[Rfam]
Source information: The record is a 101-nucleotide sequence from Allolucifera butyrica, which matches "Purine riboswitch aptamer" in Rfam. The base pairs follow the family's consensus structure, which is taken from published work.
RNA sequence: AAAUGUAAUUUUUAUAUUGCUCGUAUAAUUUUGAGAAUAUGGCUCAGAAGUCUCUACCGGUAACCGUAAAUUACCUGUCUACGAGUGAAAAGGCCCACCUU
Number, nucleotide and partner (000 for none) at each position: 001a000002a000003a000004u000005g000006u000007a000008a000009u000010u000011u000012u000013u000014a000015u000016a000017u000018u087019g086020c085021u084022c083023g082024u081025a080026u000027a000028a000029u049030u048031u047032u046033g045034a044035g043036a000037a000038u000039a000040u000041g000042g000043c035044u034045c033046a032047g031048a030049a029050g000051u000052c000053u000054c000055u000056a000057c000058c077059g075060g074061u073062a072063a071064c000065c000066g000067u000068a000069a000070a000071u063072u062073a061074c060075c059076u000077g058078u000079c000080u025081a024082c023083g022084a021085g020086u019087g018088a000089a000090a000091a000092g000093g000094c000095c000096c000097a000098c000099c000100u000101u000